[Rfam]
RNA sequence: CCCCUCCAGUUCCCUUUCCCAUCAGAUCUGCACACUGGUCUUGGUGGUCGUACAAGGAGGAAAAGGAACAUGGAAGCUGACCUCCCAGUGCUUAUAGUCUGGUAUAUAGCUUAGGGGCCAGCUUCAAACAAGG
Numbered sequence: 001c002c003c004c005u006c007c008a009g010u011u012c013c014c015u016u017u018c019c020c021a022u023c024a025g026a027u028c029u030g031c032a033c034a035c036u037g038g039u040c041u042u043g044g045u046g047g048u049c050g051u052a053c054a055a056g057g058a059g060g061a062a063a064a065g066g067a068a069c070a071u072g073g074a075a076g077c078u079g080a081c082c083u084c085c086c087a088g089u090g091c092u093u094a095u096a097g098u099c100u101g102g103u104a105u106a107u108a109g110c111u112u113a114g115g116g117g118c119c120a121g122c123u124u125c126a127a128a129c130a131a132g133g
Stems, first nucleotide, its partner, number of pairs: 003060005019047005025040004077121003081117003095109001
Shown here is a 133-nucleotide RNA sequence from Crocuta crocuta, a member of the family "Small nucleolar RNA SNORA61". ACA61 is a member of the H/ACA class of snoRNA that guide the sites of modification of uridines to pseudouridines. By type it is an H/ACA-box small nucleolar RNA.